[Rfam]
RNA sequence: CCCAUGGAGAGUUGGCACAGCCUCUGCAUUGGUCACUGCACAAAUUAUUAAAGCGCGCCCUUCAACGAUGAAGGCUGCACUUCCCGAAUAGAUCGGGACUUGGACAAAGGCGUCCUCGCUAGGUGACUAGCGGGACGCC
Numbered sequence: 001c002c003c004a005u006g007g008a009g010a011g012u013u014g015g016c017a018c019a020g021c022c023u024c025u026g027c028a029u030u031g032g033u034c035a036c037u038g039c040a041c042a043a044a045u046u047a048u049u050a051a052a053g054c055g056c057g058c059c060c061u062u063c064a065a066c067g068a069u070g071a072a073g074g075c076u077g078c079a080c081u082u083c084c085c086g087a088a089u090a091g092a093u094c095g096g097g098a099c100u101u102g103g104a105c106a107a108a109g110g111c112g113u114c115c116u117c118g119c120u121a122g123g124u125g126a127c128u129a130g131c132g133g134g135a136c137g138c139c
Base pairs, nucleotide, nucleotide: 012107013106014105015027016026017025053080055078056077057076059074060073062071063070082098083097084096085095086094109139110138111137112136113135114134115133117132118131119130120129121128122127
Notes
The family of this 139-nucleotide RNA sequence from Pseudomonas taeanensis is "Pseudomonas sRNA P11". The family's consensus secondary structure was predicted with RNAalifold. This small RNA (sRNA) was computationally identified in the genome of the opportunistic pathogen Pseudomonas aeruginosa and its expression verified by northern blot analysis. It is annotated as a non-coding RNA gene. Lineage of the source: Bacteria > Gammaproteobacteria > Pseudomonadales > Pseudomonadaceae > Pseudomonas taeanensis. A reference for the family is Livny et al. (2006), "Identification of 17 Pseudomonas aeruginosa sRNAs and prediction of sRNA-encoding genes in 10 diverse pathogens using the bioinformatic tool sRNAPredict2", Nucleic Acids Res.